The family of this 132-nucleotide sequence from Polypterus senegalus is "Small nucleolar RNA SNORA3/SNORA45 family". A reference for the family is Huttenhofer et al. (2001), "RNomics: an experimental approach that identifies 201 candidates for novel, small, non-messenger RNAs in mouse", EMBO J. The family is grouped with related families in Rfam's "SNORA3 clan". By type it is an H/ACA-box small nucleolar RNA. The match comes from Rfam's covariance-model search (83 bits). About the family: The members of this family belong to the H/ACA class of snoRNAs which are thought to guide the sites of modification of uridines to pseudouridines. Rfam 15.1 lists 2,080 matches to the family in 639 species.
[Rfam]
RNA sequence: UGCGAGACUUAGAGUCACAUCUUGAUAUUUUCUGUUGUCCUGGUGUGCUAUAGUUCUCGCAAAUUAAUGCUCUGUGCUUAUUCAUUGACUGUGCCAACACUUGCCCAGUCAAUCUCCAGCUCAGAGACAGUU
Numbered sequence: 001u002g003c004g005a006g007a008c009u010u011a012g013a014g015u016c017a018c019a020u021c022u023u024g025a026u027a028u029u030u031u032c033u034g035u036u037g038u039c040c041u042g043g044u045g046u047g048c049u050a051u052a053g054u055u056c057u058c059g060c061a062a063a064u065u066a067a068u069g070c071u072c073u074g075u076g077c078u079u080a081u082u083c084a085u086u087g088a089c090u091g092u093g094c095c096a097a098c099a100c101u102u103g104c105c106c107a108g109u110c111a112a113u114c115u116c117c118a119g120c121u122c123a124g125a126g127a128c129a130g131u132u
Stems, first nucleotide, its partner, number of pairs: 002060005007054003013049002016047006024039004072124003076120003084113005090107002093104002